[Rfam]
RNA sequence: AUUUACAAUCCUCCUGGAGAGUGGGGGAACCAAGCUUUUGGGGUGAAUCAAAUACUCGUGGAUGUGUCACAUGUGUCAUCAGGCAACAUUGGACACAGUCAGGUGUUUGUAGGGCUAAUCUUCAAGGUCCGAACCCGGCAGCUAACUUCGUAGGCGUCUUGAGGUCUUUUU
Number, nucleotide and partner (000 for none) at each position: 001a000002u020003u019004u018005a000006c000007a000008a000009u000010c000011c000012u000013c000014c000015u000016g000017g000018a004019g003020a002021g151022u150023g149024g148025g147026g146027g000028a000029a000030c000031c040032a039033a000034g000035c000036u000037u000038u000039u032040g031041g136042g135043g134044u000045g000046a000047a000048u000049c109050a108051a107052a106053u105054a104055c103056u102057c000058g000059u000060g000061g000062a000063u000064g000065u000066g000067u000068c000069a000070c000071a000072u000073g000074u000075g000076u000077c000078a000079u000080c000081a000082g000083g000084c000085a000086a000087c000088a000089u000090u000091g000092g000093a000094c000095a000096c000097a000098g000099u000100c000101a000102g056103g055104u054105g053106u052107u051108u050109g049110u000111a000112g130113g129114g128115c127116u000117a000118a000119u000120c000121u000122u000123c000124a000125a000126g000127g115128u114129c113130c112131g000132a000133a000134c043135c042136c041137g000138g000139c000140a000141g000142c000143u000144a000145a000146c026147u025148u024149c023150g022151u021152a000153g000154g000155c000156g000157u000158c000159u000160u000161g000162a000163g000164g000165u000166c000167u000168u000169u000170u000171u000
The family of this 171-nucleotide sequence from Alicyclobacillaceae bacterium I2511 is "c-di-AMP riboswitch aptamer (ydaO/yuaA leader)".
Its family is annotated with regulation of gene expression and cyclic-di-AMP binding in the Gene Ontology.
Taxonomically the source falls in Alicyclobacillaceae (Bacteria, Bacillati, Bacillota, Bacilli).
This family represents a conserved RNA structure found upstream of the ydaO and yuaA genes in Bacillus subtilis and related genes in other bacteria.